[Rfam]
Shown here is a 117-nucleotide sequence from Grus americana, a member of the family "U4atac minor spliceosomal RNA". U4atac is an essential component of the minor U12-type spliceosome complex which is required for removal of the rarer class of eukaryotic introns (AT-AC, U12-type). Its family is annotated with pre-mRNA 5'-splice site binding, U4atac snRNP and mRNA 5'-splice site recognition in the Gene Ontology. Rfam classes the family as a spliceosomal small nuclear RNA. The organism belongs to Grus, within Eukaryota.
RNA sequence: ACCGUCCUUAUCUCGGGGUUGCGCGGCUGCUCGAUGAGCGCGUGGCGAGGGCAGCACUGCUAACGCCUGAAGCAACACACCAGCGCCCGCUUCGCGCGCGGCGCAAUUUUUGGAACC
Numbered sequence: 001a002c003c004g005u006c007c008u009u010a011u012c013u014c015g016g017g018g019u020u021g022c023g024c025g026g027c028u029g030c031u032c033g034a035u036g037a038g039c040g041c042g043u044g045g046c047g048a049g050g051g052c053a054g055c056a057c058u059g060c061u062a063a064c065g066c067c068u069g070a071a072g073c074a075a076c077a078c079a080c081c082a083g084c085g086c087c088c089g090c091u092u093c094g095c096g097c098g099c100g101g102c103g104c105a106a107u108u109u110u111u112g113g114a115a116c117c
Stems, first nucleotide, its partner, number of pairs: 006018004021060003026055007038046002083104005088098003